[Rfam]
RNA: mir-46/mir-47/mir-281 microRNA precursor family
RNA sequence: GCUGAGGAAGACUGAAGGGAGCUUUCUUUUGACAGUUCGAUUUCGAACUCUUACUGUCAUGGAGGCGCUCUCUUCAGGUGAACUCUG
Numbered sequence: 001g002c003u004g005a006g007g008a009a010g011a012c013u014g015a016a017g018g019g020a021g022c023u024u025u026c027u028u029u030u031g032a033c034a035g036u037u038c039g040a041u042u043u044c045g046a047a048c049u050c051u052u053a054c055u056g057u058c059a060u061g062g063a064g065g066c067g068c069u070c071u072c073u074u075c076a077g078g079u080g081a082a083c084u085c086u087g
Base pairs, nucleotide, nucleotide: 014075015074016073017072018071020069021068022067025063026062027061031058032057033056035054036053